[Rfam]
RNA sequence: GGCACGGCAUUCAAGCGUCGAUGACUGACAAAGAACUUUCCGAGAGGUCUUAGUAUGAAUCAGUCGGAGCAGUGUUGUGUCAUCCGUUUUGAAAAACGG
Number, nucleotide and partner (000 for none) at each position: 001g081002g080003c079004a078005c077006g076007g075008c074009a073010u072011u000012c000013a000014a000015g070016c069017g000018u000019c000020g000021a000022u000023g065024a064025c063026u062027g061028a060029c000030a000031a000032a056033g000034a000035a000036c000037u000038u000039u000040c047041c046042g000043a000044g000045a000046g041047g040048u000049c000050u000051u000052a000053g000054u000055a000056u032057g000058a000059a000060u028061c027062a026063g025064u024065c023066g000067g000068a000069g016070c015071a000072g010073u009074g008075u007076u006077g005078u004079g003080u002081c001082a000083u000084c099085c098086g097087u096088u000089u000090u000091g000092a000093a000094a000095a000096a087097c086098g085099g084